[Rfam]
RNA sequence: GCAUAGUGUUACUAUCAGCAAUACACCUUAACUUCAUUUUUUCAUUCAAUAUCUAGGUGGUAGAUGCUAGAUUCUGGAAAUAAAAUAUGAAUCUCAAGUGGUCCCUGUCUCCUCUCCCAUCCAAUUCUGAAUCUAGUUGGCAAAAUUCUGAAAGUAAUACAUAUAAUCAGUGAUAAAUAAUGAUAGAAGAGUG
Numbered sequence: 001g002c003a004u005a006g007u008g009u010u011a012c013u014a015u016c017a018g019c020a021a022u023a024c025a026c027c028u029u030a031a032c033u034u035c036a037u038u039u040u041u042u043c044a045u046u047c048a049a050u051a052u053c054u055a056g057g058u059g060g061u062a063g064a065u066g067c068u069a070g071a072u073u074c075u076g077g078a079a080a081u082a083a084a085a086u087a088u089g090a091a092u093c094u095c096a097a098g099u100g101g102u103c104c105c106u107g108u109c110u111c112c113u114c115u116c117c118c119a120u121c122c123a124a125u126u127c128u129g130a131a132u133c134u135a136g137u138u139g140g141c142a143a144a145a146u147u148c149u150g151a152a153a154g155u156a157a158u159a160c161a162u163a164u165a166a167u168c169a170g171u172g173a174u175a176a177a178u179a180a181u182g183a184u185a186g187a188a189g190a191g192u193g
Stems, first nucleotide, its partner, number of pairs: 022190001027189003034183005041177002044174003050062004064162003070121002073119001076117003089114002095107002098104001125152003129148004134143001
The record is a 193-nucleotide sequence from Propithecus coquereli, which matches "Beta-globin co-transcriptional cleavage ribozyme" in Rfam. On this family, see Dye and Proudfoot, Cell 2001: "Multiple transcript cleavage precedes polymerase release in termination by RNA polymerase II". A search with the family's covariance model found it, with a score of 168 bits. The base pairs follow the family's consensus structure, which is taken from published work. The source organism's lineage runs through Eukaryota, Craniata, Amniota, Mammalia and Propithecus.